This 85-nucleotide RNA from Paenibacillus tyrphae belongs to the Rfam family "c-di-GMP-I riboswitch aptamer". Rfam's curators write: GEMM was predicted in a large-scale screen for bacterial structured RNA regulatory elements. Genes associated with GEMM are involved in a diverse array of functions, including chemotaxis regulation, signal transduction, secretion and chitin. It scores 35 bits against the family's covariance model. Pairs were carried over by alignment from the consensus structure, which is taken from published work.
RNA sequence: AGUGAACUAAGUCAAUUUUUUCACUCAUAAAAGAGUUGGAUAGCCACGGAUCUAAGGUGUUAACUAGGAUAGCCGGGUUGCAACA
Numbered sequence: 001a002g003u004g005a006a007c008u009a010a011g012u013c014a015a016u017u018u019u020u021u022c023a024c025u026c027a028u029a030a031a032a033g034a035g036u037u038g039g040a041u042a043g044c045c046a047c048g049g050a051u052c053u054a055a056g057g058u059g060u061u062a063a064c065u066a067g068g069a070u071a072g073c074c075g076g077g078u079u080g081c082a083a084c085a
Base pairs, nucleotide, nucleotide: 012039013038017034018033019032020031021030042079043078044077045076047075048074049073050070051069052068057064058063
Dot-bracket structure: ...........((...(((((........)))))...))..((((.((((((....((....))...)))..)))))))......